[Rfam]
RT-15 RNA: a 183-nucleotide sequence. The base pairs follow the family's consensus structure, which is taken from published work. Rfam classes the family as a small RNA.

RNA sequence: UCUCGCCCGCUCCAUGGAGGUCACGAUUUCCAUGGCUGAGCGAUCUUUCAAUCUGGUCGUGCCGCUGGCCCACGAAGCCACCGACAUGCGCACCACGGAUACCGCCGGCUCAACGCCGGGACGGUCUGGCGCAGUUUCCCGGCCGAGCAUUUGGCCGGGCGACGUAGAUUGCACGACGGGUAC
Dot-bracket structure: ...(((.....((((((((((....))))))))))....)))..............((((((((.((((.......)))).))...(((((....((((..((.(((((.....)))))...))))))))))).((.(((((((((....))))))))).))........)))))).......